[Rfam]
RNA sequence: CUCGGCUAUGGAGACAUGUACCCUCAGACCACCUCUGGUAUGCUGGUCGGAGCCCUGUGCGCCCUGGCAGGUGUGCUGACCAUUGCCAUGCCUGUCCCCGUGAUUGUCAACAAC
Numbered sequence: 001c002u003c004g005g006c007u008a009u010g011g012a013g014a015c016a017u018g019u020a021c022c023c024u025c026a027g028a029c030c031a032c033c034u035c036u037g038g039u040a041u042g043c044u045g046g047u048c049g050g051a052g053c054c055c056u057g058u059g060c061g062c063c064c065u066g067g068c069a070g071g072u073g074u075g076c077u078g079a080c081c082a083u084u085g086c087c088a089u090g091c092c093u094g095u096c097c098c099c100g101u102g103a104u105u106g107u108c109a110a111c112a113a114c
Base pairs, nucleotide, nucleotide: 002113004111008107009106010105011104014101015100018097020095021094037077038076039075040074049063050062
Dot-bracket structure: .(.(...((((..((..(.((...............((((........((...........))..........))))................)).)..))..))))...).).
Annotation: Rfam assigns this 114-nucleotide RNA sequence from Etheostoma spectabile to the family "Potassium channel RNA editing signal". This family represents a group of sequences related to the human potassium channel Kv1.1 hairpin element which directs the efficient modification of an adenosine to inosine by an adenosine deaminase acting on RNA (ADAR). The ADAR modification causes an isoleucine/valine recoding event which lies in the ion-conducting pore of the potassium channel. It is thought that this editing event targets the process of fast inactivation and allows a more rapid recovery from inactivation at negative potentials. It scores 97 bits against the family's covariance model. Its family is annotated with adenosine to inosine editing in the Gene Ontology. Pairs were carried over by alignment from the consensus structure, which is taken from published work.